[Rfam]
Fluoride riboswitch aptamer (crcB RNA motif): a 72-nucleotide RNA from Paraburkholderia phytofirmans. Taxonomically the source falls in Paraburkholderia phytofirmans (Bacteria, Betaproteobacteria, Burkholderiales, Paraburkholderia).
RNA sequence: GAAGCUUUCGGAGAUGGCAUUCCUCCCGUAACCGCCCUGCAUUCCCGCAGAGCUGAUGAUGCCUACGAGUUC
Numbered sequence: 001g002a003a004g005c006u007u008u009c010g011g012a013g014a015u016g017g018c019a020u021u022c023c024u025c026c027c028g029u030a031a032c033c034g035c036c037c038u039g040c041a042u043u044c045c046c047g048c049a050g051a052g053c054u055g056a057u058g059a060u061g062c063c064u065a066c067g068a069g070u071u072c
Stems, first nucleotide, its partner, number of pairs: 010026004016063006034053002037050004